[Rfam]
This 124-nucleotide RNA from Xanthomonas albilineans belongs to the Rfam family "Xanthomonadaceae sRNA Xoo5".
RNA sequence: CAGUGAAAGCGAACCUGCUCCAGCAUGCACUCAGUGCCGCUCGUCUUGCCUCUGGCAUGACCUCGCGUGCGCGUCGACCGGAAUCCCACAUUUUGGCUGGGUAACCGGAGCGUCGUUGUGCUCG
Numbered sequence: 001c002a003g004u005g006a007a008a009g010c011g012a013a014c015c016u017g018c019u020c021c022a023g024c025a026u027g028c029a030c031u032c033a034g035u036g037c038c039g040c041u042c043g044u045c046u047u048g049c050c051u052c053u054g055g056c057a058u059g060a061c062c063u064c065g066c067g068u069g070c071g072c073g074u075c076g077a078c079c080g081g082a083a084u085c086c087c088a089c090a091u092u093u094u095g096g097c098u099g100g101g102u103a104a105c106c107g108g109a110g111c112g113u114c115g116u117u118g119u120g121c122u123c124g
Base pairs, nucleotide, nucleotide: 032120033119036116038112039111040110041108042107043079046076048074049073055070056069057068058067059066080106081105085101086100087099088098089096
Lineage of the source: Bacteria > Pseudomonadati > Pseudomonadota > Xanthomonas > Xanthomonas albilineans. It is annotated as a small RNA.